[Rfam]
RNA sequence: AUCACUUGGGAAUCUUGUUAAAAUGCAGGUUCUGAUUCAGCAGGUCUAGGAUGGGGCCUGAGACUCUGCAUUUCUAACUAUCUCCCAGGUGAUGCCUA
Number, nucleotide and partner (000 for none) at each position: 001a000002u000003c091004a090005c089006u000007u000008g000009g085010g084011a083012a000013u000014c000015u080016u000017g078018u077019u076020a075021a073022a072023a071024u000025g069026c068027a067028g066029g065030u000031u063032c062033u061034g000035a000036u000037u000038c000039a000040g000041c000042a000043g000044g000045u000046c000047u000048a000049g000050g000051a000052u000053g000054g000055g000056g000057c000058c000059u000060g000061a033062g032063a031064c000065u029066c028067u027068g026069c025070a000071u023072u022073u021074c000075u020076a019077a018078c017079u000080a015081u000082c000083u011084c010085c009086c000087a000088g000089g005090u004091g003092a000093u000094g000095c000096c000097u000098a000